[Rfam]
This 87-nucleotide RNA sequence from Peromyscus maniculatus belongs to the Rfam family "Small nucleolar RNA SNORD127". A reference for the family is Yang et al. (2006), "snoSeeker: an advanced computational package for screening of guide and orphan snoRNA genes in the human genome", Nucleic Acids Res. By type it is a C/D-box small nucleolar RNA. Rfam links the family to the GO terms RNA processing and nucleolus.

RNA sequence: UGGCAACCAUGAUGAAAGACUUGGUCUAUACAGUAAUAUAUUUUAUUACUAAAUGAGGACAACAGUCCCUCUAAACUGAUAUUGCCA
Numbered sequence: 001u002g003g004c005a006a007c008c009a010u011g012a013u014g015a016a017a018g019a020c021u022u023g024g025u026c027u028a029u030a031c032a033g034u035a036a037u038a039u040a041u042u043u044u045a046u047u048a049c050u051a052a053a054u055g056a057g058g059a060c061a062a063c064a065g066u067c068c069c070u071c072u073a074a075a076c077u078g079a080u081a082u083u084g085c086c087a
Stems, first nucleotide, its partner, number of pairs: 001087006
Dot-bracket structure: ((((((...........................................................................))))))
Pairs were carried over by alignment from the consensus structure, which was predicted with WAR. A search with the family's covariance model found it, with a score of 98 bits.